Background: Rfam assigns this 138-nucleotide RNA from Anabarilius grahami to the family "Small nucleolar RNA U109". Rfam links the family to the GO terms RNA processing and nucleolus. By type it is an H/ACA-box small nucleolar RNA. The organism belongs to Anabarilius, within Eukaryota. Pairs were carried over by alignment from the consensus structure, which was predicted with WAR. The match comes from Rfam's covariance-model search (48 bits).
RNA sequence: UUGCGUGACUGUUGUGGAUGCUCCCUCACUGGUAGGGAGUAAAGACAUGCAGCCAUGCUAGAUUAACAUGCUUUGAGUCAUCAGGGCCACCAGUCUCUCAAGAACAGACUGCGACGGUAGUAUAAAACUCGCACAUUA
Numbered sequence: 001u002u003g004c005g006u007g008a009c010u011g012u013u014g015u016g017g018a019u020g021c022u023c024c025c026u027c028a029c030u031g032g033u034a035g036g037g038a039g040u041a042a043a044g045a046c047a048u049g050c051a052g053c054c055a056u057g058c059u060a061g062a063u064u065a066a067c068a069u070g071c072u073u074u075g076a077g078u079c080a081u082c083a084g085g086g087c088c089a090c091c092a093g094u095c096u097c098u099c100a101a102g103a104a105c106a107g108a109c110u111g112c113g114a115c116g117g118u119a120g121u122a123u124a125a126a127a128c129u130c131g132c133a134c135a136u137u138a
Base pairs, nucleotide, nucleotide: 003058004057005056006055007054019041020040021039022038023037024036074131075130076129077128086118087117090113091111092110093109094108095107096106